[Rfam]
Nucleotides: 083
Stems, first nucleotide, its partner, number of pairs: 005024006046077006
Number, partner (000 for none) and nucleotide at each position: 001000c002000u003000u004000a005024u006023g007022g008021g009020g010019c011000c012000a013000g014000c015000g016000a017000g018000c019010g020009c021008c022007u023006c024005g025000u026000g027000a028000g029000g030000c031000g032000u033000c034000a035000g036000c037000c038000u039000a040000a041000g042000u043000u044000u045000c046077g047076c048075g049074u050073c051072c052000a053000u054000u055000c056000a057000a058000c059000c060000c061000g062000c063000a064000a065000u066000a067000u068000g069000g070000g071000a072051g073050g074049a075048c076047g077046c078000g079000u080000c081000a082000u083000g